[Rfam]
RNA sequence: GUAUGUUGUGACAAUGGGCAAAAUAUUCAACUGCUCCAAUGGGCUGAAUGAAAAUAUGAAAAUAACCUUUCUGAGCAUCC
Numbered sequence: 001g002u003a004u005g006u007u008g009u010g011a012c013a014a015u016g017g018g019c020a021a022a023a024u025a026u027u028c029a030a031c032u033g034c035u036c037c038a039a040u041g042g043g044c045u046g047a048a049u050g051a052a053a054a055u056a057u058g059a060a061a062a063u064a065a066c067c068u069u070u071c072u073g074a075g076c077a078u079c080c
Base pairs, nucleotide, nucleotide: 003078004077005076006075
Annotation:
Shown here is an 80-nucleotide sequence from Jaculus jaculus, a member of the family "Small nucleolar RNA Z40". The base pairs follow the family's consensus structure, which was predicted with PFOLD. Lineage of the source: Eukaryota > Eumetazoa > Vertebrata > Eutheria > Jaculus. Rfam links the family to the GO terms nucleolus and RNA processing. Rfam 15.1 lists 615 matches to the family in 541 species. It is annotated as a C/D-box small nucleolar RNA. A search with the family's covariance model found it, with a score of 55 bits.